[Rfam]
RNA sequence: UAUAUUUGCAGCCUUCGAGAUAAACUCGAAGUUGCAUAAUGAUCAUUUACAAAAAUAUUGGCAUG
Numbered sequence: 001u002a003u004a005u006u007u008g009c010a011g012c013c014u015u016c017g018a019g020a021u022a023a024a025c026u027c028g029a030a031g032u033u034g035c036a037u038a039a040u041g042a043u044c045a046u047u048u049a050c051a052a053a054a055a056u057a058u059u060g061g062c063a064u065g
Stems, first nucleotide, its partner, number of pairs: 014030006

S15-Flavobacteria ribosomal protein leader: a 65-nucleotide RNA.
On this family, see Eckert and Weinberg, BMC Microbiol 2020: "Discovery of 20 novel ribosomal leader candidates in bacteria and archaea".